[Rfam]
mir-556 microRNA precursor family: an 88-nucleotide RNA sequence from Callithrix jacchus. Gene Ontology terms of the family: miRNA-mediated post-transcriptional gene silencing and RISC complex. The match comes from Rfam's covariance-model search (93 bits). The source organism's lineage runs through Eukaryota, Vertebrata, Teleostomi, Callithrix and Callithrix.
Nucleotides: 088
Stems, first nucleotide, its partner, number of pairs: 003086003007082017025064002028061008037052001
Number, partner (000 for none) and nucleotide at each position: 001000g002000a003086u004085a005084g006000c007082a008081g009080u010079g011078g012077g013076a014075a015074a016073g017072a018071u019070g020069a021068g022067c023066u024000c025064a026063u027000u028061g029060u030059a031058a032057u033056a034055u035054g036000c037052g038000c039000u040000u041000c042000a043000u044000u045000u046000a047000u048000g049000c050000a051000u052037u053000u054035c055034a056033u057032a058031u059030u060029a061028c062000a063026a064025u065000g066023a067022g068021c069020u070019c071018a072017u073016c074015u075014u076013u077012u078011u079010u080009a081008u082007u083000a084005c085004u086003a087000c088000u